Annotation: Bacterial RNase P class A: a 415-nucleotide RNA from Oscillatoriales cyanobacterium USR001. Ribonuclease P (RNase P) is a ubiquitous endoribonuclease, found in archaea, bacteria and eukarya as well as chloroplasts and mitochondria.

RNA sequence: AGAGUAGGCGCAGGUGGUUGCGGACCGAAAAAGUCUGAGGAAAGUCCGGGCUCCCAAAAGGCCAAACUUGCUGGGUAACGCCCAGUGCGAGCGAUCGUGAGGAUAGUGCCACAGAAAUAUACCGCCUACCAGGUAAUGAGUGGUGAAUUUUGAAUUAAAAACUCAAAAUUUAAAGCUCAAAACUUAGUAGGUAAGGGUGCAAAGGUGCGGUAAGAGCGCACCAGCAGUAUCGAGAGGUACUGGCUAGGUAAACCCCGGUUGGGAGCAAGGUCGGAGGAACUAUGGUUGGUCUUUUUCCAGUUCCGUUUUUGAGUACCGCUUGAGGCGUUUGGUAACAAGCGUCCCAGAUAGAUAACUGCCCUUUUAAUUGCUGGCAAUUAAGAGAACAGAACCCGGCUUAUGUCCGACUCUUUCC
Numbered sequence: 001a002g003a004g005u006a007g008g009c010g011c012a013g014g015u016g017g018u019u020g021c022g023g024a025c026c027g028a029a030a031a032a033g034u035c036u037g038a039g040g041a042a043a044g045u046c047c048g049g050g051c052u053c054c055c056a057a058a059a060g061g062c063c064a065a066a067c068u069u070g071c072u073g074g075g076u077a078a079c080g081c082c083c084a085g086u087g088c089g090a091g092c093g094a095u096c097g098u099g100a101g102g103a104u105a106g107u108g109c110c111a112c113a114g115a116a117a118u119a120u121a122c123c124g125c126c127u128a129c130c131a132g133g134u135a136a137u138g139a140g141u142g143g144u145g146a147a148u149u150u151u152g153a154a155u156u157a158a159a160a161a162c163u164c165a166a167a168a169u170u171u172a173a174a175g176c177u178c179a180a181a182a183c184u185u186a187g188u189a190g191g192u193a194a195g196g197g198u199g200c201a202a203a204g205g206u207g208c209g210g211u212a213a214g215a216g217c218g219c220a221c222c223a224g225c226a227g228u229a230u231c232g233a234g235a236g237g238u239a240c241u242g243g244c245u246a247g248g249u250a251a252a253c254c255c256c257g258g259u260u261g262g263g264a265g266c267a268a269g270g271u272c273g274g275a276g277g278a279a280c281u282a283u284g285g286u287u288g289g290u291c292u293u294u295u296u297c298c299a300g301u302u303c304c305g306u307u308u309u310u311g312a313g314u315a316c317c318g319c320u321u322g323a324g325g326c327g328u329u330u331g332g333u334a335a336c337a338a339g340c341g342u343c344c345c346a347g348a349u350a351g352a353u354a355a356c357u358g359c360c361c362u363u364u365u366a367a368u369u370g371c372u373g374g375c376a377a378u379u380a381a382g383a384g385a386a387c388a389g390a391a392c393c394c395g396g397c398u399u400a401u402g403u404c405c406g407a408c409u410c411u412u413u414c415c
Stems, first nucleotide, its partner, number of pairs: 001411005007405002010403003013360007021037005042399003046396005051265004060295002065260003069257002071085005086100001087098004101255002106253002108249003122196002124192006131185004204222006224244001225242007269317002275310006286300004324343008